[Rfam]
RNA sequence: GGGGCUGAUCGGUUUCGACUUGGGACGUUAGUUCCAGGGGAAGCGGGUCGAGGAGCCAGCGUCAUCUCGUAAACGAUCGCUGGAAACCAAUAACUGCCAACAACAAGCAGUCCUUCGCUCUCGCCGCCUGAGCGGUGAUCGAAGCGUCAGACAGGGCAUCCGUCUCCGUCCCUGAUCCUGGCGUCGACUAGGAGACUUGCUGGCCAGACCCCCGUCGGGAGGGUCGGCCGGGACUCUUUCCCGACUAGGCCUGUCGGCGACGUGUCAGUGCGAGCGCCGGGGCCGAUAAAACGACAUCACUGACUGCACCCGGAGAAGACCUGGUUCGACGCUCGAGGACGCGGGUUCGAUUCCCGCCAGCUCCACAU
Numbered sequence: 001g002g003g004g005c006u007g008a009u010c011g012g013u014u015u016c017g018a019c020u021u022g023g024g025a026c027g028u029u030a031g032u033u034c035c036a037g038g039g040g041a042a043g044c045g046g047g048u049c050g051a052g053g054a055g056c057c058a059g060c061g062u063c064a065u066c067u068c069g070u071a072a073a074c075g076a077u078c079g080c081u082g083g084a085a086a087c088c089a090a091u092a093a094c095u096g097c098c099a100a101c102a103a104c105a106a107g108c109a110g111u112c113c114u115u116c117g118c119u120c121u122c123g124c125c126g127c128c129u130g131a132g133c134g135g136u137g138a139u140c141g142a143a144g145c146g147u148c149a150g151a152c153a154g155g156g157c158a159u160c161c162g163u164c165u166c167c168g169u170c171c172c173u174g175a176u177c178c179u180g181g182c183g184u185c186g187a188c189u190a191g192g193a194g195a196c197u198u199g200c201u202g203g204c205c206a207g208a209c210c211c212c213c214g215u216c217g218g219g220a221g222g223g224u225c226g227g228c229c230g231g232g233a234c235u236c237u238u239u240c241c242c243g244a245c246u247a248g249g250c251c252u253g254u255c256g257g258c259g260a261c262g263u264g265u266c267a268g269u270g271c272g273a274g275c276g277c278c279g280g281g282g283c284c285g286a287u288a289a290a291a292c293g294a295c296a297u298c299a300c301u302g303a304c305u306g307c308a309c310c311c312g313g314a315g316a317a318g319a320c321c322u323g324g325u326u327c328g329a330c331g332c333u334c335g336a337g338g339a340c341g342c343g344g345g346u347u348c349g350a351u352u353c354c355c356g357c358c359a360g361c362u363c364c365a366c367a368u
Base pairs, nucleotide, nucleotide: 001364002363003362004361005360006359007358019337020336021335022334023333024332028328031327034324035323036322037321038320044312045311046310047309048308049069050068051067052066053065056083057082058081059080060079061078121138122137123136124135125134126133127132145183146182147181148180149179150178152174153173154172155171158169159168162196163195164194165193166192167191200231201230202229203228204227205226207224214245215244216243217242218241248284249283250282251281252280255279256278257277261272262271264304265303266302267301268298341357342356343355344354345353
Rfam assigns this 368-nucleotide RNA from Nocardioides antri to the family "transfer-messenger RNA". It scores 171 bits against the family's covariance model. About the family: Bacterial tmRNA, also known as 10Sa RNA or SsrA, is named for its dual tRNA and mRNA-like properties. Its role is to liberate the mRNA from a stalled ribosome. To accomplish this part of the tmRNA is used as a reading frame that ends in a translation stop signal. By type it is a non-coding RNA gene.